[Rfam]
RNA sequence: AAAGAAGAUGCCGAAAAUCUUAGAUAGAGUAGGCU
Numbered sequence: 001a002a003a004g005a006a007g008a009u010g011c012c013g014a015a016a017a018u019c020u021u022a023g024a025u026a027g028a029g030u031a032g033g034c035u
Stems, first nucleotide, its partner, number of pairs: 002021004010034003
Rfam assigns this 35-nucleotide RNA sequence to the family "DUF805b RNA". Rfam's curators put it in the seed alignment. Rfam classes the family as a cis-regulatory element. Pairs were carried over by alignment from the consensus structure, which is taken from published work.